[Rfam]
RNA: UnaL2 LINE 3' element
Organism: Synaphobranchus kaupii
RNA sequence: AGUAGCACUUACUGUACGUCGCUUUGGAUAAAAGCGUCUGCUAAAUGAAUGUAA
Numbered sequence: 001a002g003u004a005g006c007a008c009u010u011a012c013u014g015u016a017c018g019u020c021g022c023u024u025u026g027g028a029u030a031a032a033a034g035c036g037u038c039u040g041c042u043a044a045a046u047g048a049a050u051g052u053a054a
Stems, first nucleotide, its partner, number of pairs: 013043001014041003020036006